Small nucleolar RNA SNORD58: a 78-nucleotide sequence from Ancylostoma ceylanicum.
Gene Ontology terms of the family: nucleolus and RNA processing.
Rfam's curators write: snoRNA U58 is found in introns 1, 3 and 6 of the ribosomal protein RPL17 gene in humans.
The family's consensus secondary structure was predicted with PFOLD.
The match comes from Rfam's covariance-model search (43 bits).
Taxonomically the source falls in Ancylostoma (Eukaryota, Rhabditida, Rhabditina, Ancylostomatidae).
It is annotated as a C/D-box small nucleolar RNA.
[Rfam]
RNA sequence: GAGCCAUGAUGACAAACUUAGGACACCUUUGGAGGGCUGUGCCUCUGUGAAAGGACUCUAUUAGCCUUACUGAGCUCU
Dot-bracket structure: ((((.....................................................................)))).